[Rfam]
Source information:
A member of the RNA family "tRNA" from Allopontixanthobacter sediminis, 87 nucleotides long. Taxonomically the source falls in Allopontixanthobacter (Bacteria, Pseudomonadati, Pseudomonadota, Erythrobacteraceae). The family's RNA type in Rfam is transfer RNA. The match comes from Rfam's covariance-model search (56 bits).
RNA sequence: GGAGAGAUGCCGGAGUGGUCGAACGGGGUAGUCUCGAAAACUACUGUGCGGGCAACCGUACCCAGGGUUCGAAUCCCUGUCUCUCCG
Number, nucleotide and partner (000 for none) at each position: 001g086002g085003a084004g083005a082006g081007a080008u000009g000010c026011c025012g024013g000014a000015g000016u000017g000018g000019u000020c000021g000022a000023a000024c012025g011026g010027g000028g044029u043030a042031g041032u040033c000034u000035c000036g000037a000038a000039a000040a032041c031042u030043a029044c028045u000046g000047u000048g000049c000050g000051g000052g000053c000054a000055a000056c000057c000058g000059u000060a000061c000062c000063c079064a078065g077066g076067g075068u000069u000070c000071g000072a000073a000074u000075c067076c066077c065078u064079g063080u007081c006082u005083c004084u003085c002086c001087g000